[Rfam]
RNA sequence: UGGCGCCCAGACAGGGACCUGGACAUGGGGGAAGAAGUGAGGAAGAAGGCACUAAAGUCAGCCGAAAGUAAAAGUGGAAGAAAUUCCUCCGGACAUCGCGGGAGCCUGACACGUUGGAACCAGAGGUGAGUAACAGUGAUUAUGGGACAAGAAUUGAGCCAACAUCAAAUUUAUAUAGGGCAAUUAAAAGAGGCCUUAAAAACACGAGCAGUAAAGGUUAAAAGUAAUGAUUUAUUUAAGUUUUUUGAUUUUGUAAACGAUACCUGCCCUU
Numbered sequence: 001u002g003g004c005g006c007c008c009a010g011a012c013a014g015g016g017a018c019c020u021g022g023a024c025a026u027g028g029g030g031g032a033a034g035a036a037g038u039g040a041g042g043a044a045g046a047a048g049g050c051a052c053u054a055a056a057g058u059c060a061g062c063c064g065a066a067a068g069u070a071a072a073a074g075u076g077g078a079a080g081a082a083a084u085u086c087c088u089c090c091g092g093a094c095a096u097c098g099c100g101g102g103a104g105c106c107u108g109a110c111a112c113g114u115u116g117g118a119a120c121c122a123g124a125g126g127u128g129a130g131u132a133a134c135a136g137u138g139a140u141u142a143u144g145g146g147a148c149a150a151g152a153a154u155u156g157a158g159c160c161a162a163c164a165u166c167a168a169a170u171u172u173a174u175a176u177a178g179g180g181c182a183a184u185u186a187a188a189a190g191a192g193g194c195c196u197u198a199a200a201a202a203c204a205c206g207a208g209c210a211g212u213a214a215a216g217g218u219u220a221a222a223a224g225u226a227a228u229g230a231u232u233u234a235u236u237u238a239a240g241u242u243u244u245u246u247g248a249u250u251u252u253g254u255a256a257a258c259g260a261u262a263c264c265u266g267c268c269c270u271u
Base pairs, nucleotide, nucleotide: 006031007030008029013026015024038046085128087126088124089123094116097113098112100110136148137147140145155198156197157196158194159193160192205247206246207245208244210242211241212240215233216232217231218230219229220228256271257270259268261266
RNA: Mason-Pfizer monkey virus packaging signal